Rfam assigns this 121-nucleotide RNA sequence from Anoxynatronum buryatiense to the family "Molybdenum/Tungsten riboswitch aptamer (Moco RNA motif)". Gene Ontology terms of the family: tungstate binding, regulation of gene expression and molybdenum ion binding. Taxonomically the source falls in Anoxynatronum (Bacteria, Bacillati, Clostridia, Eubacteriales).

RNA sequence: CAAUGCUUAAGUCUCCGAGUUUUUGCGUCUACCGCGCACAGCGCCAUGACCAAAAACCAUUAAGGUAUUGCCGGAAACAGCGAUGCCUCCCACUGUGGAAAGGAGCCGAAAAGUCACCAAA
Numbered sequence: 001c002a003a004u005g006c007u008u009a010a011g012u013c014u015c016c017g018a019g020u021u022u023u024u025g026c027g028u029c030u031a032c033c034g035c036g037c038a039c040a041g042c043g044c045c046a047u048g049a050c051c052a053a054a055a056a057c058c059a060u061u062a063a064g065g066u067a068u069u070g071c072c073g074g075a076a077a078c079a080g081c082g083a084u085g086c087c088u089c090c091c092a093c094u095g096u097g098g099a100a101a102g103g104a105g106c107c108g109a110a111a112a113g114u115c116a117c118c119a120a121a
Base pairs, nucleotide, nucleotide: 011107013105014104015103016102019057020056021055022054023053024052025051027050028049029048034044035043036042063088064087065086066085067084068083069082070081071080073078089098090097